[Rfam]
RNA sequence: UGUCUCCUCCACCCUCCUCUAUUGGUGGAUUCGGCCCGAGGCCUCACGGCCCCGGGCCUUUUUCU
Numbered sequence: 001u002g003u004c005u006c007c008u009c010c011a012c013c014c015u016c017c018u019c020u021a022u023u024g025g026u027g028g029a030u031u032c033g034g035c036c037c038g039a040g041g042c043c044u045c046a047c048g049g050c051c052c053c054g055g056g057c058c059u060u061u062u063u064c065u
Base pairs, nucleotide, nucleotide: 008029009028010027011026012025013024033058034057035056036055037054038053040051041050
Betaproteobacteria toxic small RNA: a 65-nucleotide RNA from Caldimonas brevitalea. The source organism's lineage runs through Bacteria, Pseudomonadati, Betaproteobacteria, Sphaerotilaceae and Caldimonas. From the family's description: Overexpression in amino aid rich medium attenuates growth, suggesting role in repressing amino acid intake and metabolism. It scores 63 bits against the family's covariance model. Rfam 15.1 lists 951 matches to the family in 508 species.